[Rfam]
RNA sequence: UGGAUGAAACAGGGGUGCCGUGCGGAUGGGCCGCGCGGCUGAGAGAGUCCCUUCGCACCCGAUCCGGUUCGUACCGGCGUGGGAAGUUUCUUCAGAACACCG
Numbered sequence: 001u002g003g004a005u006g007a008a009a010c011a012g013g014g015g016u017g018c019c020g021u022g023c024g025g026a027u028g029g030g031c032c033g034c035g036c037g038g039c040u041g042a043g044a045g046a047g048u049c050c051c052u053u054c055g056c057a058c059c060c061g062a063u064c065c066g067g068u069u070c071g072u073a074c075c076g077g078c079g080u081g082g083g084a085a086g087u088u089u090c091u092u093c094a095g096a097a098c099a100c101c102g
Stems, first nucleotide, its partner, number of pairs: 006090005011052004016046001017039009058083004064077004
Shown here is a 102-nucleotide sequence from Ralstonia pseudosolanacearum, a member of the family "TPP riboswitch aptamer (THI element)". Taxonomically the source falls in Ralstonia pseudosolanacearum (Bacteria, Burkholderiales, Burkholderiaceae, Ralstonia solanacearum species complex).